[Rfam]
RNA sequence: GUAAAACUUUAGGGGUGCGUUACGCUGAGAAAUACCCUUUGAACCUGAUGCAGUUAGUACUGCCGAAGGGAAAAGUGAAACAACUUCC
Numbered sequence: 001g002u003a004a005a006a007c008u009u010u011a012g013g014g015g016u017g018c019g020u021u022a023c024g025c026u027g028a029g030a031a032a033u034a035c036c037c038u039u040u041g042a043a044c045c046u047g048a049u050g051c052a053g054u055u056a057g058u059a060c061u062g063c064c065g066a067a068g069g070g071a072a073a074a075g076u077g078a079a080a081c082a083a084c085u086u087c088c
Stems, first nucleotide, its partner, number of pairs: 006076005011038004016032001017025003044069003050063004
This 88-nucleotide RNA sequence from Arcticibacter svalbardensis belongs to the Rfam family "TPP riboswitch aptamer (THI element)".
A search with the family's covariance model found it, with a score of 75 bits.
Lineage of the source: Bacteria > Pseudomonadati > Bacteroidota > Arcticibacter > Arcticibacter svalbardensis.
The base pairs follow the family's consensus structure, which is taken from published work.